RNA: U5 spliceosomal RNA
RNA sequence: AGCCACGCGGUGAGCACAGAGCGAACUAUUCUUUCGCCUUUUACUAAAGAAUACCGUGUGCUCGCCGCAGAUAGUGGCAUACGCCUAUUUUUGGAGGGGUUUCUCUUAGGAGAAGCU
Numbered sequence: 001a002g003c004c005a006c007g008c009g010g011u012g013a014g015c016a017c018a019g020a021g022c023g024a025a026c027u028a029u030u031c032u033u034u035c036g037c038c039u040u041u042u043a044c045u046a047a048a049g050a051a052u053a054c055c056g057u058g059u060g061c062u063c064g065c066c067g068c069a070g071a072u073a074g075u076g077g078c079a080u081a082c083g084c085c086u087a088u089u090u091u092u093g094g095a096g097g098g099g100u101u102u103c104u105c106u107u108a109g110g111a112g113a114a115g116c117u
Stems, first nucleotide, its partner, number of pairs: 003077004008067011027053008095117001099116006